[Rfam]
RNA sequence: ACAGAAGAAAAGAGGGCCAUAGCAGAAGCAUUCAUGUUGUGACCCUGUCAGAUAAAUAUCUCUGAAUCCUGCU
Numbered sequence: 001a002c003a004g005a006a007g008a009a010a011a012g013a014g015g016g017c018c019a020u021a022g023c024a025g026a027a028g029c030a031u032u033c034a035u036g037u038u039g040u041g042a043c044c045c046u047g048u049c050a051g052a053u054a055a056a057u058a059u060c061u062c063u064g065a066a067u068c069c070u071g072c073u
Base pairs, nucleotide, nucleotide: 014045015044016043018041021073022072023071024070025069027067028040029039030038050061051060052059053058
Record summary: Rfam assigns this 73-nucleotide RNA sequence from Crocodylus porosus to the family "Mammalian CPEB3 ribozyme". The match comes from Rfam's covariance-model search (55 bits). Pairs were carried over by alignment from the consensus structure, which is taken from published work. For this family Rfam cites "A genomewide search for ribozymes reveals an HDV-like sequence in the human CPEB3 gene" (Salehi-Ashtiani et al., Science, 2006).